[Rfam]
RNA sequence: UAUUUGCUCAUGACGGCCACAGCUUAAAGCACCUACGGUUGUGGCUUGAUUUGAAAGA
Numbered sequence: 001u002a003u004u005u006g007c008u009c010a011u012g013a014c015g016g017c018c019a020c021a022g023c024u025u026a027a028a029g030c031a032c033c034u035a036c037g038g039u040u041g042u043g044g045c046u047u048g049a050u051u052u053g054a055a056a057g058a
Stems, first nucleotide, its partner, number of pairs: 001058001003056003015046010029036001

Shown here is a 58-nucleotide RNA sequence from Oryctolagus cuniculus, a member of the family "Selenocysteine insertion sequence 1". Pairs were carried over by alignment from the consensus structure, which is taken from published work. It is annotated as a cis-regulatory element.